[Rfam]
RNA sequence: UUUUUGCGUUAGGGAUAGAAGCGGCAUCCUUUUUUGCGUGGAACACCUAAAAAGAUAUAGCGAAUAGCCCGACCUUUA
Number, nucleotide and partner (000 for none) at each position: 001u000002u000003u000004u000005u000006g000007c000008g000009u000010u000011a000012g070013g069014g068015a000016u066017a065018g000019a000020a000021g061022c060023g000024g000025c000026a056027u055028c054029c000030u000031u000032u051033u050034u049035u000036g047037c000038g046039u045040g000041g000042a000043a000044c000045a039046c038047c036048u000049a034050a033051a032052a000053a000054g028055a027056u026057a000058u000059a000060g022061c021062g000063a000064a000065u017066a016067g000068c014069c013070c012071g000072a000073c000074c000075u000076u000077u000078a000
The family of this 78-nucleotide RNA from Mesonia algae is "Flavo-1 RNA". Rfam classes the family as a small RNA. NCBI's taxonomy places the organism under Bacteria, Flavobacteriia, Flavobacteriales, Flavobacteriaceae, Mesonia. The family's consensus secondary structure is taken from published work.